A member of the RNA family "Plastid-psbM 3UTR RNA" from Helianthus annuus, 73 nucleotides long.

[Rfam]
RNA sequence: GAUCCGAGAGUAUGGUAAGUAAGAAAUUACCAUACUCUCUAUUAGUGUUAUAAUAGUGUAUAAAAUUGUUUCU
Numbered sequence: 001g002a003u004c005c006g007a008g009a010g011u012a013u014g015g016u017a018a019g020u021a022a023g024a025a026a027u028u029a030c031c032a033u034a035c036u037c038u039c040u041a042u043u044a045g046u047g048u049u050a051u052a053a054u055a056g057u058g059u060a061u062a063a064a065a066u067u068g069u070u071u072c073u
Base pairs, nucleotide, nucleotide: 006039007038008037009036010035011034012033013032014031015030016029017028018027

Record summary
About the family: Plastid psbM is a non-coding RNA (ncRNA) recognised in plastids. It was found in the three prime untranslated region (3UTR) of psbM gene, its 3UTR location suggests a role in transcript maturation. Taxonomically the source falls in Helianthus (Eukaryota, Tracheophyta, Euphyllophyta, Magnoliopsida). For this family Rfam cites "Retrograde signaling in plants: A critical review focusing on the GUN pathway and beyond" (Richter et al., Plant Commun, 2023).